The family of this 103-nucleotide RNA from [Pantoea] beijingensis is "Gammaprotebacteria rimP leader". By type it is a cis-regulatory leader. NCBI's taxonomy places the organism under Bacteria, Gammaproteobacteria, Enterobacterales, Erwiniaceae, Erwinia.

RNA sequence: GCCGCUAUUGCGGCGUACAGGGUCCAGUCGCAUUAAGCCCCGAAUAUUUCGGGGUUUUUUGUUAUUAGGCAAUCGCAAUACUGGGCUAUUAAGCCCUUUUUUU
Numbered sequence: 001g002c003c004g005c006u007a008u009u010g011c012g013g014c015g016u017a018c019a020g021g022g023u024c025c026a027g028u029c030g031c032a033u034u035a036a037g038c039c040c041c042g043a044a045u046a047u048u049u050c051g052g053g054g055u056u057u058u059u060u061g062u063u064a065u066u067a068g069g070c071a072a073u074c075g076c077a078a079u080a081c082u083g084g085g086c087u088a089u090u091a092a093g094c095c096c097u098u099u100u101u102u103u
Stems, first nucleotide, its partner, number of pairs: 035057008083096004